[Rfam]
RNA sequence: AUUCAUCUUCGGGGCAGGGUGUAAUUCCCGACCGGCGGUAAUAGAAGCUUAAAUCUCCUGGAAUUGAUUGAGGGAUUUUAUAAAAGCUACUUCAGCCCGCGAGCCGCUUAUUUUAGUGUGCAGGAUUUGGUGUGAUUCCAAAGCCGACAGUAUAGUCUGGAUGGGAGAAGGUGAAG
Numbered sequence: 001a002u003u004c005a006u007c008u009u010c011g012g013g014g015c016a017g018g019g020u021g022u023a024a025u026u027c028c029c030g031a032c033c034g035g036c037g038g039u040a041a042u043a044g045a046a047g048c049u050u051a052a053a054u055c056u057c058c059u060g061g062a063a064u065u066g067a068u069u070g071a072g073g074g075a076u077u078u079u080a081u082a083a084a085a086g087c088u089a090c091u092u093c094a095g096c097c098c099g100c101g102a103g104c105c106g107c108u109u110a111u112u113u114u115a116g117u118g119u120g121c122a123g124g125a126u127u128u129g130g131u132g133u134g135a136u137u138c139c140a141a142a143g144c145c146g147a148c149a150g151u152a153u154a155g156u157c158u159g160g161a162u163g164g165g166a167g168a169a170g171g172u173g174a175a176g
Stems, first nucleotide, its partner, number of pairs: 003174008017029003031156002033146002035100004105120001126142005148159003
RNA: FMN riboswitch aptamer (RFN element)
Organism: Lysinibacillus telephonicus